[Rfam]
RNA sequence: GUGUUGGAUGAUGAAAAAAAUCAGACGGAUUCCCAAUGAUUUAUUUCUAUAAAGAUGAUCCACAACCAGCUACUUCUGACACAU
Numbered sequence: 001g002u003g004u005u006g007g008a009u010g011a012u013g014a015a016a017a018a019a020a021u022c023a024g025a026c027g028g029a030u031u032c033c034c035a036a037u038g039a040u041u042u043a044u045u046u047c048u049a050u051a052a053a054g055a056u057g058a059u060c061c062a063c064a065a066c067c068a069g070c071u072a073c074u075u076c077u078g079a080c081a082c083a084u
Stems, first nucleotide, its partner, number of pairs: 001084004006080001
RNA: Small nucleolar RNA R12
Organism: Dioscorea zingiberensis